[Rfam]
RNA: Lysine riboswitch aptamer
RNA sequence: AAAACGUAUAGAGGUAGCGAUGCAAAUGAGUAACUAGAGGAGUCGGCAGACAAAGAAUCUAGUGAAAGGUAAUCAUCGCCGAAUAGGUUUUCUGGCAAGAAAAUACUAUGGGGUUAUUGGGAAGACUGAUAACACUCCUUCAAUCGAAGGGCGCUAUUACACAA
Numbered sequence: 001a002a003a004a005c006g007u008a009u010a011g012a013g014g015u016a017g018c019g020a021u022g023c024a025a026a027u028g029a030g031u032a033a034c035u036a037g038a039g040g041a042g043u044c045g046g047c048a049g050a051c052a053a054a055g056a057a058u059c060u061a062g063u064g065a066a067a068g069g070u071a072a073u074c075a076u077c078g079c080c081g082a083a084u085a086g087g088u089u090u091u092c093u094g095g096c097a098a099g100a101a102a103a104u105a106c107u108a109u110g111g112g113g114u115u116a117u118u119g120g121g122a123a124g125a126c127u128g129a130u131a132a133c134a135c136u137c138c139u140u141c142a143a144u145c146g147a148a149g150g151g152c153g154c155u156a157u158u159a160c161a162c163a164a
Stems, first nucleotide, its partner, number of pairs: 008157004017079006025070001033063006083109004087104007110136002113133008138149004